[Rfam]
RNA: SL2 RNA
Organism: Haemonchus placei
RNA sequence: GGUUUUAACCCAGUAUCUCAAGGUACUUCGGGCUUCUGACCACCUUUCGGGGUUGUGUCAAAACCUAAAUUUUUGGCUAGCCUUUCCGGGGAUUCCGGGAGGGCAAC
Numbered sequence: 001g002g003u004u005u006u007a008a009c010c011c012a013g014u015a016u017c018u019c020a021a022g023g024u025a026c027u028u029c030g031g032g033c034u035u036c037u038g039a040c041c042a043c044c045u046u047u048c049g050g051g052g053u054u055g056u057g058u059c060a061a062a063a064c065c066u067a068a069a070u071u072u073u074u075g076g077c078u079a080g081c082c083u084u085u086c087c088g089g090g091g092a093u094u095c096c097g098g099g100a101g102g103g104c105a106a107c
Base pairs, nucleotide, nucleotide: 007035008034009031010030013028016025018023037060038059039058040057041055042054044052045051084103085102086101090096091095